[Rfam]
RNA sequence: GUGCGAAGGUCCCAGCGGAGAGGUGAAGCACUCUGUCAAUUGAGAUCUCUCCAACAAUUUGAAUUUUUCCUUUGCAAAUUGAUAUCCGAAUCGUAGGAUGCCCUCAAUUUAAUUGUUGGUGCGUCUAGAACCCUCGGAUACAUUCAU
Dot-bracket structure: ..(((((((.(.(....).)....((....(((.(....).))).....)).................))))))).........(((((.......((.((.((.(.........).)).)).))........))))).........
Numbered sequence: 001g002u003g004c005g006a007a008g009g010u011c012c013c014a015g016c017g018g019a020g021a022g023g024u025g026a027a028g029c030a031c032u033c034u035g036u037c038a039a040u041u042g043a044g045a046u047c048u049c050u051c052c053a054a055c056a057a058u059u060u061g062a063a064u065u066u067u068u069c070c071u072u073u074g075c076a077a078a079u080u081g082a083u084a085u086c087c088g089a090a091u092c093g094u095a096g097g098a099u100g101c102c103c104u105c106a107a108u109u110u111a112a113u114u115g116u117u118g119g120u121g122c123g124u125c126u127a128g129a130a131c132c133c134u135c136g137g138a139u140a141c142a143u144u145c146a147u
Stems, first nucleotide, its partner, number of pairs: 003075007011020001013018001025051002031044003035040001085138005097125002100122002103119002106116001
Description
This 147-nucleotide RNA from Tripterygium wilfordii belongs to the Rfam family "Small nucleolar RNA snoR145". The literature on the family includes a 2009 paper in Nucleic Acids Res by Chen and Wu, "Mining small RNA sequencing data: a new approach to identify small nucleolar RNAs in Arabidopsis". Its family is annotated with RNA processing and nucleolus in the Gene Ontology. The source organism's lineage runs through Eukaryota, Euphyllophyta, Pentapetalae, fabids and Tripterygium. It is annotated as an H/ACA-box small nucleolar RNA.